[Rfam]
RNA sequence: AUGGUGGUCUUUUUUCAAGAACCUAUCCUUGGUUCUUGAAAAGCAAAGGGGCAUGGAGUUGGGGUUUCUUUACCCUCCUCCAAAAAUUUCAAACAGUUUGCCUGUGCUUAGCCAAUGAUUACAAUUUCUCAGAACCAACAUCUGAAGCAAAGCAGAGAAUCUUUGGCUAACGCAUAGCAGACCGGCAAGUCACAGAACGGCAACAGACUCUGGUAUGGGUCUU
Numbered sequence: 001a002u003g004g005u006g007g008u009c010u011u012u013u014u015u016c017a018a019g020a021a022c023c024u025a026u027c028c029u030u031g032g033u034u035c036u037u038g039a040a041a042a043g044c045a046a047a048g049g050g051g052c053a054u055g056g057a058g059u060u061g062g063g064g065u066u067u068c069u070u071u072a073c074c075c076u077c078c079u080c081c082a083a084a085a086a087u088u089u090c091a092a093a094c095a096g097u098u099u100g101c102c103u104g105u106g107c108u109u110a111g112c113c114a115a116u117g118a119u120u121a122c123a124a125u126u127u128c129u130c131a132g133a134a135c136c137a138a139c140a141u142c143u144g145a146a147g148c149a150a151a152g153c154a155g156a157g158a159a160u161c162u163u164u165g166g167c168u169a170a171c172g173c174a175u176a177g178c179a180g181a182c183c184g185g186c187a188a189g190u191c192a193c194a195g196a197a198c199g200g201c202a203a204c205a206g207a208c209u210c211u212g213g214u215a216u217g218g219g220u221c222u223u
Stems, first nucleotide, its partner, number of pairs: 061079001096182006113172001206221005